[Rfam]
RNA sequence: CAUCCGUCCUCCCCGCACAGGAGGGCGGACCGGGGAACCGGUGCUCUCUGCCCUGACUGCUCCGGCUCCUCGACACUCGGCUGCGGGGGACCGCACACCCUGCAGGCCGAUGAUGCUCCGGGCUGCGGUGCCGGGAGGGUUGAGGGUCCCUCCCAGGCGC
Numbered sequence: 001c002a003u004c005c006g007u008c009c010u011c012c013c014c015g016c017a018c019a020g021g022a023g024g025g026c027g028g029a030c031c032g033g034g035g036a037a038c039c040g041g042u043g044c045u046c047u048c049u050g051c052c053c054u055g056a057c058u059g060c061u062c063c064g065g066c067u068c069c070u071c072g073a074c075a076c077u078c079g080g081c082u083g084c085g086g087g088g089g090a091c092c093g094c095a096c097a098c099c100c101u102g103c104a105g106g107c108c109g110a111u112g113a114u115g116c117u118c119c120g121g122g123c124u125g126c127g128g129u130g131c132c133g134g135g136a137g138g139g140u141u142g143a144g145g146g147u148c149c150c151u152c153c154c155a156g157g158c159g160c
Stems, first nucleotide, its partner, number of pairs: 003029004008024005032071005038065004043060002045056002077110004081105003087100003114130004119125002133154007